[Rfam]
RNA: Archaeal RNase P
RNA sequence: GGCAGCGGGAGCCCGGACCCCGUGCCCCGGAUCCCGGUUUCGGCCUCGCCGGAACGCGGGCAAGAGGCAUGAGGAAAGUCCCCCCACCGUCCGGGCAGGUGACCGGGUGCAAACCCGGGGCGGGAGACCGCCGGCACUGGAACAGAAACGAGACCGCGCCCCCCGACUGAUGCGGUGUGCGAAGCCCAACUGACGAAGGCGACUGUGGUCGGCCGUCGAAAGACAGUCGUGCCGCGUCGCCAAGAAAGGGACGGCGAGUUAACCCACCAAAGUUCGACGGGGACGUAGGGAUGGAACGGCGAAUCCUCACCGGUGCAAGUCCGCGCCGCAAGGUAGCCCGGACGUGGACGCGGACGCUCAGCCGAAUGCCGGGCCGAACAGAAGGGGGCUUACUCCCCGCAGCC
Dot-bracket structure: (((.((((((((((((....(((((.........................................)))))....[[[.[[[[[((((.[[[[[[..((((((((((......)))))(((((....)))))((...(.(.............((.((.((((...................................................................................................................)))).))...)).........).)..)))))))))))...(((((((((.........]]]]]]...)).))))))).............)))))..........]]]]]]]].)).))))).)))